[Rfam]
Nucleotides: 049
Base pairs, nucleotide, nucleotide: 001037002036003035004034005033007031008030011026012025013024014023
Number, partner (000 for none) and nucleotide at each position: 001037c002036g003035u004034g005033u006000g007031g008030u009000g010000u011026c012025u013024g014023u015000u016000g017000a018000a019000a020000c021000a022000c023014a024013u025012a026011g027000a028000u029000a030008g031007c032000g033005a034004c035003a036002c037001g038000g039000c040000c041000g042000a043000c044000a045000g046000a047000g048000g049000u